[Rfam]
RNA sequence: UUUUCAAUUCUUUCUAUAUUGUUAC
Numbered sequence: 001u002u003u004u005c006a007a008u009u010c011u012u013u014c015u016a017u018a019u020u021g022u023u024a025c
Stems, first nucleotide, its partner, number of pairs: 005021004
RNA: CRISPR RNA direct repeat element